Rfam assigns this 196-nucleotide RNA sequence from Molossus molossus to the family "Small nucleolar RNA SNORA73 family". A reference for the family is Enright et al. (1996), "5'ETS rRNA processing facilitated by four small RNAs: U14, E3, U17, and U3", RNA. Its family is annotated with RNA processing and nucleolus in the Gene Ontology. Pairs were carried over by alignment from the consensus structure, which is taken from published work. From the family's description: U17 (SNORA73A and SNORA73B) also known as E1 belongs to the H/ACA class of small nucleolar RNAs (snoRNAs).
RNA sequence: CCAAUGUGGAUACCCUGGGAGGUCACGCUCCCAGGGGCCGUCCGGGUGGUGUAGGGGCAGCACAGUGUUCUGCUUAAUGAUGUGUAGUUCUUUCCACUUCAUUAGAGAGAAAGUCAGGCCUUGAGUCUGCUAUUUCUACGGCUUCUCAGAGUCCUGUGGACAGUGUCUGAGGAGACAAACCAUGCAGGAAGCAUCC
Numbered sequence: 001c002c003a004a005u006g007u008g009g010a011u012a013c014c015c016u017g018g019g020a021g022g023u024c025a026c027g028c029u030c031c032c033a034g035g036g037g038c039c040g041u042c043c044g045g046g047u048g049g050u051g052u053a054g055g056g057g058c059a060g061c062a063c064a065g066u067g068u069u070c071u072g073c074u075u076a077a078u079g080a081u082g083u084g085u086a087g088u089u090c091u092u093u094c095c096a097c098u099u100c101a102u103u104a105g106a107g108a109g110a111a112a113g114u115c116a117g118g119c120c121u122u123g124a125g126u127c128u129g130c131u132a133u134u135u136c137u138a139c140g141g142c143u144u145c146u147c148a149g150a151g152u153c154c155u156g157u158g159g160a161c162a163g164u165g166u167c168u169g170a171g172g173a174g175a176c177a178a179a180c181c182a183u184g185c186a187g188g189a190a191g192c193a194u195c196c
Base pairs, nucleotide, nucleotide: 001105003103004102005101006100008043009042010041011040014035015034016033018029019028021026046097047096048095049094055090056089057088060085062083063082064081065078066077126188127187128186129185130184131182142174143173144172145171146170147169151161152160153159154158